Rfam assigns this 97-nucleotide RNA sequence from Tessaracoccus lapidicaptus to the family "Bacterial small signal recognition particle RNA".
[Rfam]
RNA sequence: GAAGGUUCCUCGCGCGGCGGUAUCUCGCCCAACCCCCCCAGGGUCGGAAGGCAGCAAGGGUAAGUGAGCUCUGCCGGGUGCGCGAGGGGCCCUUUUC
Numbered sequence: 001g002a003a004g005g006u007u008c009c010u011c012g013c014g015c016g017g018c019g020g021u022a023u024c025u026c027g028c029c030c031a032a033c034c035c036c037c038c039c040a041g042g043g044u045c046g047g048a049a050g051g052c053a054g055c056a057a058g059g060g061u062a063a064g065u066g067a068g069c070u071c072u073g074c075c076g077g078g079u080g081c082g083c084g085a086g087g088g089g090c091c092c093u094u095u096u097c
Base pairs, nucleotide, nucleotide: 004091005090006089007088008087009086010085011084012083013082014081015078018076019075020074021073022072024068025067026066027065028064035060036059037058043052044051045050
By type it is a non-coding RNA gene.
Taxonomically the source falls in Tessaracoccus (Bacteria, Bacillati, Actinomycetota, Actinomycetes).
Rfam's curators write: The signal recognition particle (SRP) is a universally conserved ribonucleoprotein involved in the co-translational targeting of proteins to membranes.